[Rfam]
RNA sequence: ACGCGGAAAGGAGGUGGUCCGAAUAAUGGUUAGUCAUAGUCGGGCUAGCGAGGUGGUUGUCCGCUGACGUCGCGGACGCUUGUCUCGGUCUCGUGACGUGACGCGAAUUCGAGGCAACUACCGGGGCCCCUGACAGCCGGAGGGCGGGAGCGAACGCAUCCCGUCCGUGGUCCAUCCGGCCCACCCGCACGAGCGGGCGGAGUGUUGUCCGGGGCCCUUCUUCA
Numbered sequence: 001a002c003g004c005g006g007a008a009a010g011g012a013g014g015u016g017g018u019c020c021g022a023a024u025a026a027u028g029g030u031u032a033g034u035c036a037u038a039g040u041c042g043g044g045c046u047a048g049c050g051a052g053g054u055g056g057u058u059g060u061c062c063g064c065u066g067a068c069g070u071c072g073c074g075g076a077c078g079c080u081u082g083u084c085u086c087g088g089u090c091u092c093g094u095g096a097c098g099u100g101a102c103g104c105g106a107a108u109u110c111g112a113g114g115c116a117a118c119u120a121c122c123g124g125g126g127c128c129c130c131u132g133a134c135a136g137c138c139g140g141a142g143g144g145c146g147g148g149a150g151c152g153a154a155c156g157c158a159u160c161c162c163g164u165c166c167g168u169g170g171u172c173c174a175u176c177c178g179g180c181c182c183a184c185c186c187g188c189a190c191g192a193g194c195g196g197g198c199g200g201a202g203u204g205u206u207g208u209c210c211g212g213g214g215c216c217c218u219u220c221u222u223c224a
Stems, first nucleotide, its partner, number of pairs: 013061006062105003065101001067099002070096004075090003123218008132209004139198001

The family of this 224-nucleotide sequence from Nonomuraea wenchangensis is "Actinobacteria sRNA Ms_IGR-5". Rfam classes the family as a small RNA. Taxonomically the source falls in Nonomuraea (Bacteria, Actinomycetota, Actinomycetes, Streptosporangiales). A search with the family's covariance model found it, with a score of 51 bits.